About this RNA: The record is a 46-nucleotide RNA from Actinacidiphila oryziradicis, which matches "L31-Actinobacteria ribosomal protein leader" in Rfam. Clan: Ribosomal Protein L31 Leader clan.

[Rfam]
RNA sequence: CUGGCCCCGGUUCACGUGCCGCAAACCCGCUGUACGACCCGGAGCC
Number, nucleotide and partner (000 for none) at each position: 001c000002u000003g046004g045005c044006c000007c042008c041009g040010g039011u000012u000013c000014a000015c036016g035017u034018g033019c032020c000021g030022c029023a000024a000025a000026c000027c000028c000029g022030c021031u000032g019033u018034a017035c016036g015037a000038c000039c010040c009041g008042g007043a000044g005045c004046c003
Description:
A search with the family's covariance model found it, with a score of 41 bits.